[Rfam]
RNA: c-di-AMP riboswitch aptamer (ydaO/yuaA leader)
Organism: Planosporangium flavigriseum
RNA sequence: GGCUGGUCGCCGCCGAGUCACCGCAGGGGUGAGCCGGGGACCCAGGUACCUGGGGUGAAUCCGCACGGUGCGGUAGGGCGUGUGCCGGCCCGAACCCGUCAGCUAACCCGGUAGGCGGCACAGGCGAAGGAA
Dot-bracket structure: ..........((((...(((.........)))((((((....((......))(((.....((((.....))))..((((........))))...))).........)))))).))))...............